Source information
The record is a 152-nucleotide sequence from Nocardioides sp. LS1, which matches "FMN riboswitch aptamer (RFN element)" in Rfam. Rfam's curators write: The RFN element is a highly conserved domain that is found frequently in the 5'-untranslated regions of prokaryotic mRNAs that encode for flavin mononucleotide (FMN) biosynthesis and transport proteins. The match comes from Rfam's covariance-model search (89 bits). The family's consensus secondary structure is taken from published work.
RNA sequence: UCGCGUGCUCUGGGGUCGGUGUAAUUCCGAGCCGGCGGUGACUGUCCGAAGGAAUUCGGGCAGAAGUCCGCGACCCGGUCACAGCCAGUGACCGGUUGACCAGGUGGGAUUCCUGGACCGACGGUGAAAGUCCGGAUGGGAAGCGCACGCAG
Numbered sequence: 001u002c003g004c005g006u007g008c009u010c011u012g013g014g015g016u017c018g019g020u021g022u023a024a025u026u027c028c029g030a031g032c033c034g035g036c037g038g039u040g041a042c043u044g045u046c047c048g049a050a051g052g053a054a055u056u057c058g059g060g061c062a063g064a065a066g067u068c069c070g071c072g073a074c075c076c077g078g079u080c081a082c083a084g085c086c087a088g089u090g091a092c093c094g095g096u097u098g099a100c101c102a103g104g105u106g107g108g109a110u111u112c113c114u115g116g117a118c119c120g121a122c123g124g125u126g127a128a129a130g131u132c133c134g135g136a137u138g139g140g141a142a143g144c145g146c147a148c149g150c151a152g
Stems, first nucleotide, its partner, number of pairs: 003150006010143001017029003031131002033120002035071004066118002075095002100116005122134003